This 69-nucleotide RNA from Comamonas terrigena belongs to the Rfam family "Xanthine riboswitch aptamer (NMT1 RNA)". Rfam links the family to the GO term purine nucleobase binding. The source organism's lineage runs through Bacteria, Pseudomonadati, Pseudomonadota, Comamonadaceae and Comamonas.

[Rfam]
RNA sequence: CGAACGAGUAGAAGCGUUCAGCGCAAGGCGGCUGUAUCCAGCCGCCAACGCCCGGAAAUUGCUCAACCU
Numbered sequence: 001c002g003a004a005c006g007a008g009u010a011g012a013a014g015c016g017u018u019c020a021g022c023g024c025a026a027g028g029c030g031g032c033u034g035u036a037u038c039c040a041g042c043c044g045c046c047a048a049c050g051c052c053c054g055g056a057a058a059u060u061g062c063u064c065a066a067c068c069u
Stems, first nucleotide, its partner, number of pairs: 006064005015054001018056002021051003027045001